[Rfam]
RNA sequence: AGCCGUGCGGUAAGCACAAAGCGAACUAUUCUUUCGCCUUUUACUAAAGAAUACCGUGUGCUUGCCGUUUUCAAGCGGCAUACGCCUAUUUUUGGAGGGUUUCUCUUGCACUAGAGGAAC
Numbered sequence: 001a002g003c004c005g006u007g008c009g010g011u012a013a014g015c016a017c018a019a020a021g022c023g024a025a026c027u028a029u030u031c032u033u034u035c036g037c038c039u040u041u042u043a044c045u046a047a048a049g050a051a052u053a054c055c056g057u058g059u060g061c062u063u064g065c066c067g068u069u070u071u072c073a074a075g076c077g078g079c080a081u082a083c084g085c086c087u088a089u090u091u092u093u094g095g096a097g098g099g100u101u102u103c104u105c106u107u108g109c110a111c112u113a114g115a116g117g118a119a120c
Stems, first nucleotide, its partner, number of pairs: 002079004008067011027053008099120008

Shown here is a 120-nucleotide RNA from Papaver nudicaule, a member of the family "U5 spliceosomal RNA". Taxonomically the source falls in Papaver (Eukaryota, Streptophytina, Mesangiospermae, Papaveroideae). Rfam describes the family as follows. U5 RNA is a component of both types of known spliceosome. The literature on the family includes a 1997 paper in Nucleic Acids Res by Zwieb, "The uRNA database". It is annotated as a spliceosomal small nuclear RNA.